[Rfam]
RNA sequence: ACAGCCUCCGAAUAACGAGAAGGUGAAAUAUAGGAACACUUUCUGGUUCAGACAGAGGCUUACAACAAAACUAGAAUCAGUUUUGAGGGUGAAAAAGCUAUACUCUUUUGCCAUCAAAAUCUUCUUCCUUUUCUUGGAAAGAUUCGAAUAUCA
Numbered sequence: 001a002c003a004g005c006c007u008c009c010g011a012a013u014a015a016c017g018a019g020a021a022g023g024u025g026a027a028a029u030a031u032a033g034g035a036a037c038a039c040u041u042u043c044u045g046g047u048u049c050a051g052a053c054a055g056a057g058g059c060u061u062a063c064a065a066c067a068a069a070a071c072u073a074g075a076a077u078c079a080g081u082u083u084u085g086a087g088g089g090u091g092a093a094a095a096a097g098c099u100a101u102a103c104u105c106u107u108u109u110g111c112c113a114u115c116a117a118a119a120u121c122u123u124c125u126u127c128c129u130u131u132u133c134u135u136g137g138a139a140a141g142a143u144u145c146g147a148a149u150a151u152c153a
Base pairs, nucleotide, nucleotide: 003060004059005058006057007056008055014048015047016046018044019043020042021041023039024038025037074145075144076143077142078141081118082117085114087112089111092108093107096106097105125139126138127137128136
Dot-bracket structure: ..((((((.....(((.((((.(((...........))).)))).)))......)))))).............(((((..((..(.(.(..((..((.......))))..)).)..))......((((.......)))).)))))........
The family of this 153-nucleotide RNA sequence from Eutrema salsugineum is "Small nucleolar RNA snoR138". It scores 128 bits against the family's covariance model. Pairs were carried over by alignment from the consensus structure, which was predicted with mfold. Taxonomically the source falls in Eutrema (Eukaryota, Tracheophyta, Spermatophyta, Brassicaceae).